[Rfam]
RNA sequence: ACAAACUGAAAAUUAUUACCUCGUAUAACUGUGGAAAUAUGGUCCACAAGUCUCUACCAGAUGGCCGUAAACCAUCUGACUACGGGGGAAGUGCACCUAGGG
Numbered sequence: 001a002c003a004a005a006c007u008g009a010a011a012a013u014u015a016u017u018a019c020c021u022c023g024u025a026u027a028a029c030u031g032u033g034g035a036a037a038u039a040u041g042g043u044c045c046a047c048a049a050g051u052c053u054c055u056a057c058c059a060g061a062u063g064g065c066c067g068u069a070a071a072c073c074a075u076c077u078g079a080c081u082a083c084g085g086g087g088g089a090a091g092u093g094c095a096c097c098u099a100g101g102g
Stems, first nucleotide, its partner, number of pairs: 019087007030048006058078007
RNA: Purine riboswitch aptamer